Rfam assigns this 154-nucleotide RNA from Amborella trichopoda to the family "MIR8565 microRNA precursor family". The source organism's lineage runs through Eukaryota, Viridiplantae, Spermatophyta, Magnoliopsida and Amborella.
RNA sequence: CCCCCACCCAUGUGUGUAGGACCCCAAAGGAUUACCAUUAAAAUAGGCACGAAUCUCUAGAAAAGUUAUCACAUAAGUGUGAAACUUGACUUUUCUAUAGAUCCGUGUCAAAUUUAAUGGUGAUCCUUUGGAGUCCUACACACAUGGGUGCGAG
Numbered sequence: 001c002c003c004c005c006a007c008c009c010a011u012g013u014g015u016g017u018a019g020g021a022c023c024c025c026a027a028a029g030g031a032u033u034a035c036c037a038u039u040a041a042a043a044u045a046g047g048c049a050c051g052a053a054u055c056u057c058u059a060g061a062a063a064a065g066u067u068a069u070c071a072c073a074u075a076a077g078u079g080u081g082a083a084a085c086u087u088g089a090c091u092u093u094u095c096u097a098u099a100g101a102u103c104c105g106u107g108u109c110a111a112a113u114u115u116a117a118u119g120g121u122g123a124u125c126c127u128u129u130g131g132a133g134u135c136c137u138a139c140a141c142a143c144a145u146g147g148g149u150g151c152g153a154g
Stems, first nucleotide, its partner, number of pairs: 003152001005150009015140008024131005030125003034121009044111001046109006053102004058097011069082005
About this RNA:
The base pairs follow the family's consensus structure, which was predicted with RNAalifold.